[Rfam]
Description
The record is a 182-nucleotide sequence from Ammoniphilus sp. CFH 90114, which matches "c-di-AMP riboswitch aptamer (ydaO/yuaA leader)" in Rfam. Lineage of the source: Bacteria > Bacillati > Bacillota > Caryophanales > Ammoniphilus. A search with the family's covariance model found it, with a score of 98 bits.

RNA sequence: AAAAUCAAAUCGCUGAGUUCCGAAUUGGAAGCGGGGGACCCAAGUUUGGUUUGUGUUCUUGUUCUGUUGAAGAGAACACAAAUUAGGGGGUGAAUCUUGUGUGGACUAUAUUCUUCACAGGUAGGGCGACUCUCACGCCCGAAUCCGACAGCUAACCUCGUAAGCGUAUAAAGAGAGGUGGA
Numbered sequence: 001a002a003a004a005u006c007a008a009a010u011c012g013c014u015g016a017g018u019u020c021c022g023a024a025u026u027g028g029a030a031g032c033g034g035g036g037g038a039c040c041c042a043a044g045u046u047u048g049g050u051u052u053g054u055g056u057u058c059u060u061g062u063u064c065u066g067u068u069g070a071a072g073a074g075a076a077c078a079c080a081a082a083u084u085a086g087g088g089g090g091u092g093a094a095u096c097u098u099g100u101g102u103g104g105a106c107u108a109u110a111u112u113c114u115u116c117a118c119a120g121g122u123a124g125g126g127c128g129a130c131u132c133u134c135a136c137g138c139c140c141g142a143a144u145c146c147g148a149c150a151g152c153u154a155a156c157c158u159c160g161u162a163a164g165c166g167u168a169u170a171a172a173g174a175g176a177g178g179u180g181g182a
Stems, first nucleotide, its partner, number of pairs: 011166004018030003031161006041087001088146003096121006124140004
From the family's description: This family represents a conserved RNA structure found upstream of the ydaO and yuaA genes in Bacillus subtilis and related genes in other bacteria.